[Rfam]
RNA sequence: GCGAGGUGAUGAUAAAAUUCAUUUGUCUGUCAAUCCUCUGAUAUUCUUUGAUGUUAUUUAUGAAUCCCGACAGGUUCUGAUCGC
Numbered sequence: 001g002c003g004a005g006g007u008g009a010u011g012a013u014a015a016a017a018u019u020c021a022u023u024u025g026u027c028u029g030u031c032a033a034u035c036c037u038c039u040g041a042u043a044u045u046c047u048u049u050g051a052u053g054u055u056a057u058u059u060a061u062g063a064a065u066c067c068c069g070a071c072a073g074g075u076u077c078u079g080a081u082c083g084c
Stems, first nucleotide, its partner, number of pairs: 001084004
RNA: Small nucleolar RNA snoR14